[Rfam]
RNA sequence: UAAUAUGUUUGGAGCAAAUCCUCAUUUAGUUAUGACAAAUUCAUACCUGACUGUUUAAAAUCACUCGUUAUCGCAAGCCCGACUACAUCAUUGAUAUUGAAAAAUAGAGAACAACUACAAUGUGAAUAACAACUUUUUAAAAUUUUAA
Numbered sequence: 001u002a003a004u005a006u007g008u009u010u011g012g013a014g015c016a017a018a019u020c021c022u023c024a025u026u027u028a029g030u031u032a033u034g035a036c037a038a039a040u041u042c043a044u045a046c047c048u049g050a051c052u053g054u055u056u057a058a059a060a061u062c063a064c065u066c067g068u069u070a071u072c073g074c075a076a077g078c079c080c081g082a083c084u085a086c087a088u089c090a091u092u093g094a095u096a097u098u099g100a101a102a103a104a105u106a107g108a109g110a111a112c113a114a115c116u117a118c119a120a121u122g123u124g125a126a127u128a129a130c131a132a133c134u135u136u137u138u139a140a141a142a143u144u145u146u147a148a
Base pairs, nucleotide, nucleotide: 005145007143008141009140012137014130019125023122024121025120027117028116029115030114031113
Dot-bracket structure: ....(.(((..(.(....(...(((.(((((.................................................................................)))))..)))..)....)......)..)).).)...
Overview
Rfam assigns this 148-nucleotide RNA sequence from Populus trichocarpa to the family "MIR480 microRNA precursor family". Gene Ontology terms of the family: miRNA-mediated post-transcriptional gene silencing and RISC complex. On this family, see Lu et al., Plant Cell 2005: "Novel and mechanical stress-responsive MicroRNAs in Populus trichocarpa that are absent from Arabidopsis". Taxonomically the source falls in Populus (Eukaryota, Magnoliopsida, fabids, Malpighiales). The sequence is in the family's curated seed alignment. Pairs were carried over by alignment from the consensus structure, which was predicted with WAR.